RNA sequence: GGUCGAUUAGCUCAGCGGGAGAGCACUCGCUUCACACGCGAGGGGUCACUGGUUCGAUCCCAGUAUCGACCA
Numbered sequence: 001g002g003u004c005g006a007u008u009a010g011c012u013c014a015g016c017g018g019g020a021g022a023g024c025a026c027u028c029g030c031u032u033c034a035c036a037c038g039c040g041a042g043g044g045g046u047c048a049c050u051g052g053u054u055c056g057a058u059c060c061c062a063g064u065a066u067c068g069a070c071c072a
Stems, first nucleotide, its partner, number of pairs: 001071007010024004026042005048064005